The family of this 76-nucleotide RNA from Dorea sp. AF36-15AT is "c-di-GMP-I riboswitch aptamer". It scores 59 bits against the family's covariance model. The source organism's lineage runs through Bacteria, Bacillota, Lachnospirales, Lachnospiraceae and Dorea. Clan: c-di-GMP_I riboswitch clan.
RNA sequence: AGGAUUCAUCGGCAAAUCAGUCGAAAGGCUGAGACGCAAAGCUAUAGGGUCUGUAAAAUGACAGCCAGCUGCAAUG
Numbered sequence: 001a002g003g004a005u006u007c008a009u010c011g012g013c014a015a016a017u018c019a020g021u022c023g024a025a026a027g028g029c030u031g032a033g034a035c036g037c038a039a040a041g042c043u044a045u046a047g048g049g050u051c052u053g054u055a056a057a058a059u060g061a062c063a064g065c066c067a068g069c070u071g072c073a074a075u076g
Stems, first nucleotide, its partner, number of pairs: 012037002017032006040070004047066002049062003